[Rfam]
Rfam assigns this 67-nucleotide RNA from Pipistrellus kuhlii to the family "mir-9256 microRNA precursor family". Gene Ontology terms of the family: RISC complex and miRNA-mediated post-transcriptional gene silencing. The base pairs follow the family's consensus structure, which was predicted with RNAalifold.
RNA sequence: AUAUACACUGAGUGGUCAGAUUAUGGUGAUCUCUGAACGCAUAAUAAUCUUACCACUCAGUGUAUAU
Numbered sequence: 001a002u003a004u005a006c007a008c009u010g011a012g013u014g015g016u017c018a019g020a021u022u023a024u025g026g027u028g029a030u031c032u033c034u035g036a037a038c039g040c041a042u043a044a045u046a047a048u049c050u051u052a053c054c055a056c057u058c059a060g061u062g063u064a065u066a067u
Stems, first nucleotide, its partner, number of pairs: 004064013019049006026042003